[Rfam]
RNA sequence: GGCUGCUCUGAAUGUAGUGAGUUCUCUCAGUUGAUUGUUUACACUCAAUUGCAGAUGGGAAUGCUUGUUCUAUUUCCUUCCCUCUUCUUACUAUUGCACUAGACCAGCCUAAA
Numbered sequence: 001g002g003c004u005g006c007u008c009u010g011a012a013u014g015u016a017g018u019g020a021g022u023u024c025u026c027u028c029a030g031u032u033g034a035u036u037g038u039u040u041a042c043a044c045u046c047a048a049u050u051g052c053a054g055a056u057g058g059g060a061a062u063g064c065u066u067g068u069u070c071u072a073u074u075u076c077c078u079u080c081c082c083u084c085u086u087c088u089u090a091c092u093a094u095u096g097c098a099c100u101a102g103a104c105c106a107g108c109c110u111a112a113a
Base pairs, nucleotide, nucleotide: 001109002108003107004106005105007103008102011100014097015096016092017091018090019089020088021087043075047071
Dot-bracket structure: (((((.((..(..((((((((.....................(...(.......................)...)...........))))))...))..).)).)))))....
Y RNA: a 113-nucleotide RNA from Cebus imitator.
Rfam 15.1 lists 26,986 matches to the family in 650 species.
NCBI's taxonomy places the organism under Eukaryota, Opisthokonta, Chordata, Cebinae, Cebus.
A search with the family's covariance model found it, with a score of 41 bits.
The literature on the family includes a 2013 paper in Physiol Genomics by Dhahbi et al., "5'-YRNA fragments derived by processing of transcripts from specific YRNA genes and pseudogenes are abundant in human serum and plasma".